A member of the RNA family "ffh sRNA" from Pukyongiella litopenaei, 52 nucleotides long. For this family Rfam cites "Identification of candidate structured RNAs in the marine organism 'Candidatus Pelagibacter ubique'" (Meyer et al., BMC Genomics, 2009). Pairs were carried over by alignment from the consensus structure, which is taken from published work. It is annotated as a small RNA.
[Rfam]
RNA sequence: GCGGGCAGGGAUCGCCCCCCACCAGCGCGUUGCGCCCGUGGGGGCGUUUGUG
Numbered sequence: 001g002c003g004g005g006c007a008g009g010g011a012u013c014g015c016c017c018c019c020c021a022c023c024a025g026c027g028c029g030u031u032g033c034g035c036c037c038g039u040g041g042g043g044g045c046g047u048u049u050g051u052g
Stems, first nucleotide, its partner, number of pairs: 016044007025035004